[Rfam]
RNA sequence: GUGCAAUGAUGCAUUUUAUUCAUCAACACAUCAUUCUGAAAGCACAGAUGUGUAGAAUACUAAAGACUGAGCACA
Numbered sequence: 001g002u003g004c005a006a007u008g009a010u011g012c013a014u015u016u017u018a019u020u021c022a023u024c025a026a027c028a029c030a031u032c033a034u035u036c037u038g039a040a041a042g043c044a045c046a047g048a049u050g051u052g053u054a055g056a057a058u059a060c061u062a063a064a065g066a067c068u069g070a071g072c073a074c075a
Stems, first nucleotide, its partner, number of pairs: 001074004
RNA: Small nucleolar RNA SNORD63